Mammalian CPEB3 ribozyme: a 73-nucleotide RNA sequence from Alligator mississippiensis.
The family's consensus secondary structure is taken from published work.
RNA sequence: UGUUCUAUCCUGCUGGUCAUAGCAGAAGUGUUCACAUCGCAACCCCUGUCAGGUAAUACCUGCAAUUUUUGCU
Numbered sequence: 001u002g003u004u005c006u007a008u009c010c011u012g013c014u015g016g017u018c019a020u021a022g023c024a025g026a027a028g029u030g031u032u033c034a035c036a037u038c039g040c041a042a043c044c045c046c047u048g049u050c051a052g053g054u055a056a057u058a059c060c061u062g063c064a065a066u067u068u069u070u071g072c073u
Base pairs, nucleotide, nucleotide: 015044016043017042021073022072023071024070025069026068027067028040029039030038050062051061052060053059054058
Lineage of the source: Eukaryota > Deuterostomia > Chordata > Amniota > Alligator.